[Rfam]
RNA sequence: UGAUAGCUGUGAAGCGAGAGGUUGCCGGCUGCCAGCGAUGACAGACGGGUUUUCCGUGGAGCGAAUGUCAAGUUACAAAACUGACGACAA
Dot-bracket structure: .............(((.((((...(((.(((..........))).)))..)))))))........((((..((((......)))))))).
S10-Clostridia ribosomal protein leader: a 90-nucleotide RNA from Acetatifactor muris. It scores 85 bits against the family's covariance model. For this family Rfam cites "Discovery of 20 novel ribosomal leader candidates in bacteria and archaea" (Eckert and Weinberg, BMC Microbiol, 2020). Taxonomically the source falls in Acetatifactor (Bacteria, Bacillati, Bacillota, Lachnospirales).